[Rfam]
Record summary: Rfam assigns this 84-nucleotide RNA from Caproicibacter fermentans to the family "c-di-GMP-I riboswitch aptamer". GEMM was predicted in a large-scale screen for bacterial structured RNA regulatory elements. Rfam links the family to the GO term cyclic-di-GMP binding. The source organism's lineage runs through Bacteria, Bacillota, Eubacteriales, Acutalibacteraceae and Caproicibacter.
RNA sequence: UAAGUAAAAUGGCAAAUCCGCCGAAAGACGGAGACGCAAAGCCAAGGGGCUAAACCCGACAGGGCAUGCCAGCCGGUUGCACUU
Numbered sequence: 001u002a003a004g005u006a007a008a009a010u011g012g013c014a015a016a017u018c019c020g021c022c023g024a025a026a027g028a029c030g031g032a033g034a035c036g037c038a039a040a041g042c043c044a045a046g047g048g049g050c051u052a053a054a055c056c057c058g059a060c061a062g063g064g065c066a067u068g069c070c071a072g073c074c075g076g077u078u079g080c081a082c083u084u
Stems, first nucleotide, its partner, number of pairs: 012037002017032004022027001040078004046074002048070003055064003